[Rfam]
RNA sequence: UCAAGUUUGACCACUCGUCUUAUUUAAAAAUUUGUGUAAAAUAUCAAUUCUUUUGUCGUGGUUUGGUUUAUUAAUAAAAAUUCUUCAAGAAUGACUUAAAUUUGACUAUAUUUGCACAAAUUUUUUAAAUAAGACGAGUGGUCAAACUUGG
Number, nucleotide and partner (000 for none) at each position: 001u151002c150003a149004a148005g147006u146007u145008u144009g143010a142011c141012c140013a139014c138015u137016c136017g135018u134019c133020u132021u131022a130023u129024u000025u000026a000027a000028a000029a000030a000031u000032u000033u000034g000035u000036g000037u000038a000039a000040a000041a000042u000043a000044u000045c000046a000047a000048u000049u000050c000051u000052u000053u000054u000055g000056u000057c000058g000059u000060g000061g000062u000063u000064u000065g000066g000067u000068u000069u000070a000071u000072u000073a000074a000075u000076a000077a000078a000079a000080a000081u000082u000083c000084u000085u000086c000087a000088a000089g000090a000091a000092u000093g000094a000095c000096u000097u000098a000099a000100a000101u000102u000103u000104g000105a000106c000107u000108a000109u000110a000111u000112u000113u000114g000115c000116a000117c000118a000119a000120a000121u000122u000123u000124u000125u000126u000127a000128a000129a023130u022131a021132a020133g019134a018135c017136g016137a015138g014139u013140g012141g011142u010143c009144a008145a007146a006147c005148u004149u003150g002151g001
The family of this 151-nucleotide RNA sequence from Miscanthus lutarioriparius is "MIR812 microRNA precursor family". It scores 82 bits against the family's covariance model. Gene Ontology terms of the family: RISC complex and miRNA-mediated post-transcriptional gene silencing.